[Rfam]
RNA: Nematode snoRNA ceN88
Organism: Caenorhabditis elegans
RNA sequence: CGCUCCUAUCUUGGCGCUUCCAUUGGUGAAUAUGGCUGUGUAUGUUAUAGGAGAGAUAGUAGUGCCUUUUGGCUUUCGGAUCUCCUUCGGUGUUUGUCUUGCAUCUCGACAAAUGUCAUCCUCUGGGUUCGAGACAAUU
Numbered sequence: 001c002g003c004u005c006c007u008a009u010c011u012u013g014g015c016g017c018u019u020c021c022a023u024u025g026g027u028g029a030a031u032a033u034g035g036c037u038g039u040g041u042a043u044g045u046u047a048u049a050g051g052a053g054a055g056a057u058a059g060u061a062g063u064g065c066c067u068u069u070u071g072g073c074u075u076u077c078g079g080a081u082c083u084c085c086u087u088c089g090g091u092g093u094u095u096g097u098c099u100u101g102c103a104u105c106u107c108g109a110c111a112a113a114u115g116u117c118a119u120c121c122u123c124u125g126g127g128u129u130c131g132a133g134a135c136a137a138u139u
Base pairs, nucleotide, nucleotide: 003053004052005051006050007049008048009047014041015040016039017038020035021034022033023032064073065072066071075133076132077131078130079129080128081127082126083125089117090116093113094112095111096110097109098108